[Rfam]
RNA sequence: CCGCACUGGAGGGAGAGCGGCCUGGGGUGUGGGUGUUGUGUGCUGUGUUGCAGAGUCGCAUGGACGACACGUGCGGGCCGAGUGUGUGAGUGGACGCGUGAAUGUGAGCGUGCGUGGGGCGUGCAAGGCGGGUGCGUGACCCCCCCCUACGCCAUUGCCCUCGCUUACACUUUGAUCUUAUUUGAUCGGGUUGUGACUCCAGCCCGCCGGGCCGACCCGAGAUGAAAAGCUCCCCUCCUGCGAAGCCCCUUCCUCGGGGCGCUGUGCAGAGAGGCCCCGUGGGUGGCGGCAGCGCCGCGGUCCCGGAGCCAAUCCUACGGGACCCGGUGCUCAGAAGUGAUGAAUUGAUCAGAUAGACGAGGCCGGGCUUGUCCCGGGCCGCUGAUUAUCGAGGCGAUUCUGAUCUGA
Numbered sequence: 001c002c003g004c005a006c007u008g009g010a011g012g013g014a015g016a017g018c019g020g021c022c023u024g025g026g027g028u029g030u031g032g033g034u035g036u037u038g039u040g041u042g043c044u045g046u047g048u049u050g051c052a053g054a055g056u057c058g059c060a061u062g063g064a065c066g067a068c069a070c071g072u073g074c075g076g077g078c079c080g081a082g083u084g085u086g087u088g089a090g091u092g093g094a095c096g097c098g099u100g101a102a103u104g105u106g107a108g109c110g111u112g113c114g115u116g117g118g119g120c121g122u123g124c125a126a127g128g129c130g131g132g133u134g135c136g137u138g139a140c141c142c143c144c145c146c147c148u149a150c151g152c153c154a155u156u157g158c159c160c161u162c163g164c165u166u167a168c169a170c171u172u173u174g175a176u177c178u179u180a181u182u183u184g185a186u187c188g189g190g191u192u193g194u195g196a197c198u199c200c201a202g203c204c205c206g207c208c209g210g211g212c213c214g215a216c217c218c219g220a221g222a223u224g225a226a227a228a229g230c231u232c233c234c235c236u237c238c239u240g241c242g243a244a245g246c247c248c249c250u251u252c253c254u255c256g257g258g259g260c261g262c263u264g265u266g267c268a269g270a271g272a273g274g275c276c277c278c279g280u281g282g283g284u285g286g287c288g289g290c291a292g293c294g295c296c297g298c299g300g301u302c303c304c305g306g307a308g309c310c311a312a313u314c315c316u317a318c319g320g321g322a323c324c325c326g327g328u329g330c331u332c333a334g335a336a337g338u339g340a341u342g343a344a345u346u347g348a349u350c351a352g353a354u355a356g357a358c359g360a361g362g363c364c365g366g367g368c369u370u371g372u373c374c375c376g377g378g379c380c381g382c383u384g385a386u387u388a389u390c391g392a393g394g395c396g397a398u399u400c401u402g403a404u405c406u407g408a
Base pairs, nucleotide, nucleotide: 053152055150056149057073058072059071061069062068090105092103095100108140109136110135111134112133113132115130116129181228182227183226186220187219188218189217191215192214193213195212198211199210200209202207253308254307255306257304258303259302261301262300263299266298267297269295271293274290275289276288277286278285309327310326313322314321315320332407333406334405335404342400343399344398345397346396347395361380362379363378364377366375367374
A member of the RNA family "Small Cajal body-specific RNA 2" from Molossus molossus, 408 nucleotides long. The literature on the family includes a 2004 paper in Curr Biol by Tycowski et al., "Guide RNAs with 5' caps and novel box C/D snoRNA-like domains for modification of snRNAs in metazoa". Rfam links the family to the GO terms nucleolus and RNA processing. The base pairs follow the family's consensus structure, which is taken from published work. The family has 20 seed sequences and 612 matches in Rfam 15.1. A search with the family's covariance model found it, with a score of 371 bits. The organism belongs to Molossus, within Eukaryota.